[Rfam]
RNA sequence: CAAAAAGAGCACAGGGAGGAUGCCUUGGCACUGGGAGCCGAAGAAAGACGUGACAAGCUGCGAAAAUCUGUGGGGAGGGGCAAAUACCCAUUGAUCCACAGGUAUCUGAAUGGGGCAACCUAUCCGGGGAAAGCCCGGAUAUGCCGCAGCCAAUACAUAACUGCGGCAGGGGAACCCGGCGAACUGAAACAUCUAAGUAGCCGGAGGAAAAGAAAGAAAGAUCGAUUCCGGAAGUAGCGGCGAGCGAAACCGGAAAAAGCCCAAACCACAGCACGAGUGCUGUGGGGUUGAGGACUGCAAAAGGCAAAACUCCAGCCACCCGAACGGAUUUGGGAAAUCCGGCCAUAGAGCGUGAAAGCCGUGUAGGGGAAGGCAGGAAUAAGCUGGCAGUAUCCAGAGUACCAUGAGACACGUGGAACCUCGUGGGAAGCAGGGGGGACCACCCCCCAAGGCAAAAUACUACCCAGUGACCGAUAGAGAACAGUACAGUGAUGGAAAGGUGAAAAGGACCCCGGGAGGGGAGUGAAAGAGAACCUGAAACCCUGUGUUUACAUA
Numbered sequence: 001c002a003a004a005a006a007g008a009g010c011a012c013a014g015g016g017a018g019g020a021u022g023c024c025u026u027g028g029c030a031c032u033g034g035g036a037g038c039c040g041a042a043g044a045a046a047g048a049c050g051u052g053a054c055a056a057g058c059u060g061c062g063a064a065a066a067u068c069u070g071u072g073g074g075g076a077g078g079g080g081c082a083a084a085u086a087c088c089c090a091u092u093g094a095u096c097c098a099c100a101g102g103u104a105u106c107u108g109a110a111u112g113g114g115g116c117a118a119c120c121u122a123u124c125c126g127g128g129g130a131a132a133g134c135c136c137g138g139a140u141a142u143g144c145c146g147c148a149g150c151c152a153a154u155a156c157a158u159a160a161c162u163g164c165g166g167c168a169g170g171g172g173a174a175c176c177c178g179g180c181g182a183a184c185u186g187a188a189a190c191a192u193c194u195a196a197g198u199a200g201c202c203g204g205a206g207g208a209a210a211a212g213a214a215a216g217a218a219a220g221a222u223c224g225a226u227u228c229c230g231g232a233a234g235u236a237g238c239g240g241c242g243a244g245c246g247a248a249a250c251c252g253g254a255a256a257a258a259g260c261c262c263a264a265a266c267c268a269c270a271g272c273a274c275g276a277g278u279g280c281u282g283u284g285g286g287g288u289u290g291a292g293g294a295c296u297g298c299a300a301a302a303g304g305c306a307a308a309a310c311u312c313c314a315g316c317c318a319c320c321c322g323a324a325c326g327g328a329u330u331u332g333g334g335a336a337a338u339c340c341g342g343c344c345a346u347a348g349a350g351c352g353u354g355a356a357a358g359c360c361g362u363g364u365a366g367g368g369g370a371a372g373g374c375a376g377g378a379a380u381a382a383g384c385u386g387g388c389a390g391u392a393u394c395c396a397g398a399g400u401a402c403c404a405u406g407a408g409a410c411a412c413g414u415g416g417a418a419c420c421u422c423g424u425g426g427g428a429a430g431c432a433g434g435g436g437g438g439a440c441c442a443c444c445c446c447c448c449a450a451g452g453c454a455a456a457a458u459a460c461u462a463c464c465c466a467g468u469g470a471c472c473g474a475u476a477g478a479g480a481a482c483a484g485u486a487c488a489g490u491g492a493u494g495g496a497a498a499g500g501u502g503a504a505a506a507g508g509a510c511c512c513c514g515g516g517a518g519g520g521g522a523g524u525g526a527a528a529g530a531g532a533a534c535c536u537g538a539a540a541c542c543c544u545g546u547g548u549u550u551a552c553a554u555a
Stems, first nucleotide, its partner, number of pairs: 007550010022535001023500002027472002029469007036461002038171002046107003049062003068101007077089003112121003122140007142168008175206001176204005186193002216223002226457001227254005237245002259453003266285007292395002295390004305383001309380001311378003315374003319368003325341004330337001344348001350362003402426007433448005487494002510521004
Record summary: Shown here is a 555-nucleotide part of an RNA from Johnsonella ignava, a member of the family "Bacterial large subunit ribosomal RNA". The organism belongs to Johnsonella ignava, within Bacteria.